[Rfam]
RNA: Histone 3' UTR stem-loop
Organism: Paragonimus heterotremus
RNA sequence: CCCACGGCCCUUUUCAGGGCCACCCACAACAUGAUUUUCAUUUAUU
Numbered sequence: 001c002c003c004a005c006g007g008c009c010c011u012u013u014u015c016a017g018g019g020c021c022a023c024c025c026a027c028a029a030c031a032u033g034a035u036u037u038u039c040a041u042u043u044a045u046u
Stems, first nucleotide, its partner, number of pairs: 006021006
Dot-bracket structure: .....((((((....)))))).........................